The record is an 85-nucleotide sequence from Handroanthus impetiginosus, which matches "mir-160 microRNA precursor family" in Rfam. NCBI's taxonomy places the organism under Eukaryota, Viridiplantae, Embryophyta, Bignoniaceae, Handroanthus.
RNA sequence: GUAUGCCUGGCUCCUUGUAUGCCAUUCGCUGAGUUUAUCUGUAGAUGGUAGUCUUUGUGGAUGGCAUGCUUGGAGCCAUGCAUGC
Numbered sequence: 001g002u003a004u005g006c007c008u009g010g011c012u013c014c015u016u017g018u019a020u021g022c023c024a025u026u027c028g029c030u031g032a033g034u035u036u037a038u039c040u041g042u043a044g045a046u047g048g049u050a051g052u053c054u055u056u057g058u059g060g061a062u063g064g065c066a067u068g069c070u071u072g073g074a075g076c077c078a079u080g081c082a083u084g085c
Stems, first nucleotide, its partner, number of pairs: 001085006008078007017069008027059003
A reference for the family is Rhoades et al. (2002), "Prediction of plant microRNA targets", Cell.